[Rfam]
RNA sequence: GAAAGGCUGCGUAAAAUUUUUUUGCGGCUGGAUGCAUAGAACCCCGUCAGUUUUAUGUGUCUCAAUUAGG
Number, nucleotide and partner (000 for none) at each position: 001g000002a000003a000004a000005g029006g028007c027008u026009g025010c024011g023012u000013a000014a000015a000016a000017u000018u000019u000020u000021u000022u000023u011024g010025c009026g008027g007028c006029u005030g062031g061032a060033u059034g058035c057036a056037u055038a054039g053040a052041a051042c050043c000044c000045c000046g000047u000048c000049a000050g042051u041052u040053u039054u038055a037056u036057g035058u034059g033060u032061c031062u030063c000064a000065a000066u000067u000068a000069g000070g000
This 70-nucleotide RNA from Firmicutes bacterium CAG:424 belongs to the Rfam family "S4-Clostridia ribosomal protein leader". The family's RNA type in Rfam is cis-regulatory leader. The source organism's lineage runs through Bacteria, Bacillati and Bacillota. A reference for the family is Eckert and Weinberg (2020), "Discovery of 20 novel ribosomal leader candidates in bacteria and archaea", BMC Microbiol.